The family of this 54-nucleotide RNA sequence from Pogona vitticeps is "Antizyme RNA frameshifting stimulation element".
Gene Ontology term of the family: translational frameshifting.
On this family, see Ivanov et al., J Mol Biol 2004: "Identification of a new antizyme mRNA +1 frameshifting stimulatory pseudoknot in a subset of diverse invertebrates and its apparent absence in intermediate species".
[Rfam]
RNA sequence: UGGUGCCCCUCACCCACCCCUGAAGGUCCCAGGUGGGGAAUAGCCAGAGGGAUC
Numbered sequence: 001u002g003g004u005g006c007c008c009c010u011c012a013c014c015c016a017c018c019c020c021u022g023a024a025g026g027u028c029c030c031a032g033g034u035g036g037g038g039a040a041u042a043g044c045c046a047g048a049g050g051g052a053u054c
Base pairs, nucleotide, nucleotide: 010039011038013037014036015035016034017033018032025054026053027052028051029050030049
Description:
The family's RNA type in Rfam is frameshift element. It scores 48 bits against the family's covariance model. This family represents a structural element which is found in antizyme mRNA and is known to promote frameshifting. Antizyme genes have have two partially overlapping open reading frames, the second, which encodes the functional protein requires +1 translational frameshifting. This frameshift is stimulated by a pseudoknot present 3' of the frameshift site in the antizyme mRNA. The frameshifting efficiency is dependent on the level of polyamines in the cell, when the polyamine concentration is high frameshifting is more likely to occur which leads to an increase in the quantity of functional antizyme produced.